Rfam assigns this 74-nucleotide RNA from Crocodylus porosus to the family "Mammalian CPEB3 ribozyme". Its family is annotated with RNA nuclease activity in the Gene Ontology. The mammalian CPEB3 ribozyme is a self cleaving RNA located in the second intron of the CPEB3 gene which belongs to a family of genes regulating messenger RNA polyadenylation. This ribozyme is highly conserved and found only in mammals. The CPEB3 ribozyme is structurally and biochemically related to the human hepatitis delta virus (HDV) ribozyme and the HDV ribozyme is proposed to have arisen from the human transcriptome. There is currently only one other known self cleaving ribozyme in mammals, the CoTC motif. The match comes from Rfam's covariance-model search (38 bits). The organism belongs to Crocodylus, within Eukaryota.

RNA sequence: ACAGGUUUGUAGGCUACAGCAGACGUGCUCAAGGCACAGCCAUGUCAGGCUCCAACAGAUCUGUGAAUUUUGCU
Numbered sequence: 001a002c003a004g005g006u007u008u009g010u011a012g013g014c015u016a017c018a019g020c021a022g023a024c025g026u027g028c029u030c031a032a033g034g035c036a037c038a039g040c041c042a043u044g045u046c047a048g049g050c051u052c053c054a055a056c057a058g059a060u061c062u063g064u065g066a067a068u069u070u071u072g073c074u
Stems, first nucleotide, its partner, number of pairs: 010042001012041004018074006025037003046063004051058001